[Rfam]
RNA: Group II catalytic intron D1-D4-4
RNA sequence: AAAUGGGUGAAAGUCCCAUAUCGGAAAUUGGUUGUUUGACCGAUUAGCUAUAUCUGACAUAUUGUAAAGGUAACUUGCAAUAUGAAAGCUCAGAAGUAAAAGUCCUUGCAAGCGAAGGGCAAACAAGUUUACGGGUCGUACCAUAA
Number, nucleotide and partner (000 for none) at each position: 001a000002a000003a000004u000005g000006g000007g000008u000009g000010a000011a000012a000013g000014u000015c000016c000017c000018a000019u000020a044021u043022c042023g041024g040025a000026a000027a000028u000029u000030g000031g000032u000033u000034g000035u000036u000037u000038g000039a000040c024041c023042g022043a021044u020045u000046a000047g000048c000049u000050a000051u000052a000053u094054c093055u092056g091057a000058c084059a083060u082061a081062u080063u079064g000065u000066a000067a075068a000069g074070g000071u000072a000073a000074c069075u067076u000077g000078c000079a063080a062081u061082a060083u059084g058085a000086a000087a000088g000089c000090u000091c056092a055093g054094a053095a000096g000097u000098a000099a000100a000101a000102g120103u119104c118105c117106u116107u115108g000109c000110a000111a000112g000113c000114g000115a107116a106117g105118g104119g103120c102121a000122a000123a139124c138125a000126a000127g000128u000129u000130u000131a000132c000133g000134g000135g000136u000137c000138g124139u123140a000141c000142c000143a000144u000145a000146a000